[Rfam]
The record is a 96-nucleotide RNA from Mangrovimicrobium sediminis, which matches "c-di-GMP-I riboswitch aptamer" in Rfam.
RNA sequence: GCGAGGAAAGGCCAAACCGGGGGCGACCCCGGGACGGAAAGUCACAGGACUCGAUAUCCAGGAGGGGUUGUGUUUCGAGUUGGCUGGGCCGCCCUA
Numbered sequence: 001g002c003g004a005g006g007a008a009a010g011g012c013c014a015a016a017c018c019g020g021g022g023g024c025g026a027c028c029c030c031g032g033g034a035c036g037g038a039a040a041g042u043c044a045c046a047g048g049a050c051u052c053g054a055u056a057u058c059c060a061g062g063a064g065g066g067g068u069u070g071u072g073u074u075u076c077g078a079g080u081u082g083g084c085u086g087g088g089c090c091g092c093c094c095u096a
Stems, first nucleotide, its partner, number of pairs: 012037002017032006041089003045086003048081007

NCBI's taxonomy places the organism under Bacteria, Pseudomonadota, Cellvibrionales, Halieaceae, Mangrovimicrobium. The base pairs follow the family's consensus structure, which is taken from published work.